[Rfam]
The family of this 68-nucleotide RNA sequence from Phyllobacterium sp. YR620 is "S-element". Its family is annotated with mRNA transcription and translation regulator activity in the Gene Ontology. For this family Rfam cites "Two discrete elements are required for the replication of a repABC plasmid: an antisense RNA and a stem-loop structure" (Venkova-Canova et al., Mol Microbiol, 2004). Rfam's curators write: This family represents a group of S-elements from p42d and related plasmids.

RNA sequence: UGUCAAGAUAUUUUGACGUCGUUCUGGCGAGCGGAUUUCUUUUGCCUUUAGAAAGGUAAGAGGCAAUG
Numbered sequence: 001u002g003u004c005a006a007g008a009u010a011u012u013u014u015g016a017c018g019u020c021g022u023u024c025u026g027g028c029g030a031g032c033g034g035a036u037u038u039c040u041u042u043u044g045c046c047u048u049u050a051g052a053a054a055g056g057u058a059a060g061a062g063g064c065a066a067u068g
Stems, first nucleotide, its partner, number of pairs: 011062004018057003022054002025051001027049001029047001031045005